[Rfam]
RNA: c-di-GMP-I riboswitch aptamer
Organism: Candidatus Methylobacter favarea
RNA sequence: AUCUGAAAAAGGCAAAACCAUCGAAAGGUGGUGACGCAAAAUUACCAGUCUAAAGGAAUUUUCCUAUGACAGUGGGAUCGCCAGA
Numbered sequence: 001a002u003c004u005g006a007a008a009a010a011g012g013c014a015a016a017a018c019c020a021u022c023g024a025a026a027g028g029u030g031g032u033g034a035c036g037c038a039a040a041a042u043u044a045c046c047a048g049u050c051u052a053a054a055g056g057a058a059u060u061u062u063c064c065u066a067u068g069a070c071a072g073u074g075g076g077a078u079c080g081c082c083a084g085a
Base pairs, nucleotide, nucleotide: 012037013036017032018031019030020029021028022027041078042077043076045075046074047073048070049069050068055064056063057062